[Rfam]
RNA sequence: AGAGCAUUGAGAGGAGUCUUCCUUAGUACGAGAGGACCGGGAAGAACGCACCUCUGGUGUACCUGUUAUCGUGCCAACGGUAAACGCAGGGUAGCCAAGUGCGGAGCGGAUAACCGCUGAAAGCAUCUAAGUGGGAAGCCCACCUCAAGAUGAGUGCUCUCAUGGUGUUAAGCCAGUAAGGUCACGGAAAGAACAUCCGUUUACUAGGCGCUAGGUGGAAGUUCGGCAACGAAUGCAGCCGAGGCGUACUAACAGACCGAGG
Dot-bracket structure: ((((((((..((((..(((((((...............))))))).(((((...(((....(((((((((((....))))))...)))))....))).)))))....((....(((((...........)))))....))..))))......))))))))..(((.......))).(..(((((((((.......)))))....((((((((.((.....(((((....)))))....))..))))).)))...)))).)..
RNA: Bacterial large subunit ribosomal RNA, nucleotides 2624 to 2885
Organism: Lusitaniella coriacea